[Rfam]
RNA sequence: GAAAAUCAGAAAAACUGGCUACAUAAGGUGUAUUACCCUAGAGUGAUCUCCCAAGUAAAAAUAUUUUAAACAAUAUUUAUCAUGAAUUAUUAAUCUAAUACUGGACAAAAAACCUGCCAGUUGUUGUACUGUUUAAUAGCACAGAUUUUGUGUUUAUCAUUUAUUUAAAGGUAAAUUUGAUGUCUAAGAUUAAAGGUAACGUUAAAUGGUUUAAUGAAUCUAAAGGAUUUGGUUUCAUUACUCCUGAAGAUGGUAGCAAAGAUGUGUUUGUACAUUUUUCUGCUAUUCAAAGCAAUGGUUUCAAAACUCUGGCUGAAGGUCAACGUGUAGAGUUUGAAAUUACUAAUGGUGCAAAAGGUCCUUCAGCUGCUGAGGUUACUGCUAUUUAAACUGCUAUUUAAUUGGCUAGUUUCCUAAAAAAACCCGCUUUAAAGCGGGUUUUUUCUA
Numbered sequence: 001g002a003a004a005a006u007c008a009g010a011a012a013a014a015c016u017g018g019c020u021a022c023a024u025a026a027g028g029u030g031u032a033u034u035a036c037c038c039u040a041g042a043g044u045g046a047u048c049u050c051c052c053a054a055g056u057a058a059a060a061a062u063a064u065u066u067u068a069a070a071c072a073a074u075a076u077u078u079a080u081c082a083u084g085a086a087u088u089a090u091u092a093a094u095c096u097a098a099u100a101c102u103g104g105a106c107a108a109a110a111a112a113c114c115u116g117c118c119a120g121u122u123g124u125u126g127u128a129c130u131g132u133u134u135a136a137u138a139g140c141a142c143a144g145a146u147u148u149u150g151u152g153u154u155u156a157u158c159a160u161u162u163a164u165u166u167a168a169a170g171g172u173a174a175a176u177u178u179g180a181u182g183u184c185u186a187a188g189a190u191u192a193a194a195g196g197u198a199a200c201g202u203u204a205a206a207u208g209g210u211u212u213a214a215u216g217a218a219u220c221u222a223a224a225g226g227a228u229u230u231g232g233u234u235u236c237a238u239u240a241c242u243c244c245u246g247a248a249g250a251u252g253g254u255a256g257c258a259a260a261g262a263u264g265u266g267u268u269u270g271u272a273c274a275u276u277u278u279u280c281u282g283c284u285a286u287u288c289a290a291a292g293c294a295a296u297g298g299u300u301u302c303a304a305a306a307c308u309c310u311g312g313c314u315g316a317a318g319g320u321c322a323a324c325g326u327g328u329a330g331a332g333u334u335u336g337a338a339a340u341u342a343c344u345a346a347u348g349g350u351g352c353a354a355a356a357g358g359u360c361c362u363u364c365a366g367c368u369g370c371u372g373a374g375g376u377u378a379c380u381g382c383u384a385u386u387u388a389a390a391c392u393g394c395u396a397u398u399u400a401a402u403u404g405g406c407u408a409g410u411u412u413c414c415u416a417a418a419a420a421a422a423c424c425c426g427c428u429u430u431a432a433a434g435c436g437g438g439u440u441u442u443u444u445c446u447a
Base pairs, nucleotide, nucleotide: 004020006018007017008016009015026245027244030241031240032239041236042235045234046233047232048231051226052225061221063219064218067216069215072212073211075210076209077208081182082181083180085178086177094169096167097166098165101120102119103118104117131140132139133138184196185195249341250340251339261269262268274328275327277325281322282321283319284318287312288311289310291308296305348361349360351359352358365383366382367381369379371378388412389411390410393406394405395404417444418443419442420441421440422439423438424437425436426435427434428433
Rfam assigns this 447-nucleotide RNA from Candidatus Gullanella endobia to the family "cspA thermoregulator". The match comes from Rfam's covariance-model search (113 bits). The literature on the family includes a 2010 paper in Mol Cell by Giuliodori et al., "The cspA mRNA is a thermosensor that modulates translation of the cold-shock protein CspA". The source organism's lineage runs through Bacteria, Pseudomonadota, Enterobacterales, Enterobacteriaceae and Candidatus Gullanella.